chrB-b RNA: a 58-nucleotide RNA sequence. It is one of the family's seed sequences. Rfam classes the family as a cis-regulatory element.
RNA sequence: UGGGGAUAGUAAGCAGACUCCCCGGCGUUUCAAGACGCUCAUCGCGUCCAAGCUCUGC
Numbered sequence: 001u002g003g004g005g006a007u008a009g010u011a012a013g014c015a016g017a018c019u020c021c022c023c024g025g026c027g028u029u030u031c032a033a034g035a036c037g038c039u040c041a042u043c044g045c046g047u048c049c050a051a052g053c054u055c056u057g058c
Base pairs, nucleotide, nucleotide: 001024002023003022004021005020006019013058014057015056016055017054034048035047036046037045038044
Overview:
The family's consensus secondary structure is taken from published work.